Description
Lysine riboswitch aptamer: a 184-nucleotide sequence from Vibrio thalassae. Lineage of the source: Bacteria > Pseudomonadota > Vibrionales > Vibrionaceae > Vibrio. From the family's description: Riboswitches are metabolite binding domains within certain messenger RNAs that serve as precision sensors for their corresponding targets. Allosteric rearrangement of mRNA structure is mediated by ligand binding, and this results in modulation of gene expression. This family includes riboswitches that sense lysine in a number of genes involved in lysine metabolism, including lysC.
RNA sequence: UUUUGAUGUAGAGGCGCGAUUGCGAAAAGUCCUUGUCGUUGGGGUGAUGCCAAUGAACGACAACAAAAGGCGCUGUCGCCGAAGUGAGAGUUGAAUAUCAGCCACUCUCGCUGGGGUUGUCUCGGAAACGAACAACACUGCCAUAGUCUAUUAUAUUGUUAAACUAUGGAGCGCUACUGUAGGG
Numbered sequence: 001u002u003u004u005g006a007u008g009u010a011g012a013g014g015c016g017c018g019a020u021u022g023c024g025a026a027a028a029g030u031c032c033u034u035g036u037c038g039u040u041g042g043g044g045u046g047a048u049g050c051c052a053a054u055g056a057a058c059g060a061c062a063a064c065a066a067a068a069g070g071c072g073c074u075g076u077c078g079c080c081g082a083a084g085u086g087a088g089a090g091u092u093g094a095a096u097a098u099c100a101g102c103c104a105c106u107c108u109c110g111c112u113g114g115g116g117u118u119g120u121c122u123c124g125g126a127a128a129c130g131a132a133c134a135a136c137a138c139u140g141c142c143a144u145a146g147u148c149u150a151u152u153a154u155a156u157u158g159u160u161a162a163a164c165u166a167u168g169g170a171g172c173g174c175u176a177c178u179g180u181a182g183g184g
Stems, first nucleotide, its partner, number of pairs: 008177004016079005022073003033063007083112009093102001113139002116136005122130001141169007